A member of the RNA family "Small nucleolar RNA SNORA42/SNORA80 family" from Albula goreensis, 136 nucleotides long.
The family has 21 seed sequences and 1,535 matches in Rfam 15.1.
Rfam's curators write: The members of this family belong to the H/ACA class of snoRNAs that guide the sites of modification of uridines to pseudouridines. Human ACA42 (SNORA42) was cloned from HeLa cells by immunoprecipitation with anti-GAR1 antibody.
By type it is an H/ACA-box small nucleolar RNA.

RNA sequence: GCAUGGCUUUGGAUUUAUGGCAGGGUCCUACCCAUGAUCCUAUCAUAGUGUACUCCAUGCUAAAGCAAAUAAAGUACUCCGAACCAUUGUCUGGCCCUUCCAUGUGGGUCCAGUCACUGAAGUGAGUUGAACACUA
Numbered sequence: 001g002c003a004u005g006g007c008u009u010u011g012g013a014u015u016u017a018u019g020g021c022a023g024g025g026u027c028c029u030a031c032c033c034a035u036g037a038u039c040c041u042a043u044c045a046u047a048g049u050g051u052a053c054u055c056c057a058u059g060c061u062a063a064a065g066c067a068a069a070u071a072a073a074g075u076a077c078u079c080c081g082a083a084c085c086a087u088u089g090u091c092u093g094g095c096c097c098u099u100c101c102a103u104g105u106g107g108g109u110c111c112a113g114u115c116a117c118u119g120a121a122g123u124g125a126g127u128u129g130a131a132c133a134c135u136a
Stems, first nucleotide, its partner, number of pairs: 001060004005055002008052001015048006022041003026036001076127004085119002091113001093110005